[Rfam]
Background:
c-di-GMP-I riboswitch aptamer: a 99-nucleotide RNA from Veronia pacifica. The source organism's lineage runs through Bacteria, Pseudomonadota, Gammaproteobacteria, Vibrionaceae and Veronia.
RNA sequence: UCAAGUGAAAGGCAAACCACAGCGAAAGCGUGGGACGCAAAGCCACCGGCCGUAAAAAAUGUUUAUUCAUUUAUUCAAUACGGCGGCGGGGCUGCCCGG
Numbered sequence: 001u002c003a004a005g006u007g008a009a010a011g012g013c014a015a016a017c018c019a020c021a022g023c024g025a026a027a028g029c030g031u032g033g034g035a036c037g038c039a040a041a042g043c044c045a046c047c048g049g050c051c052g053u054a055a056a057a058a059a060u061g062u063u064u065a066u067u068c069a070u071u072u073a074u075u076c077a078a079u080a081c082g083g084c085g086g087c088g089g090g091g092c093u094g095c096c097c098g099g
Stems, first nucleotide, its partner, number of pairs: 012038002017033004022029002041093004046089003049084006
Dot-bracket structure: ...........((...((((.((....))))))...))..((((.(((((((((........................))))))..)))))))......